[Rfam]
RNA sequence: UAAGUGGAAACCGAAAAGCUUUAAAAGAGUAGGUA
Dot-bracket structure: .((((....[[[.....))))..........]]].
A member of the RNA family "DUF805b RNA" from Flammeovirga pacifica, 35 nucleotides long. The family's RNA type in Rfam is cis-regulatory element. Clan: DUF805 clan. The source organism's lineage runs through Bacteria, Pseudomonadati, Bacteroidota, Flammeovirgaceae and Flammeovirga.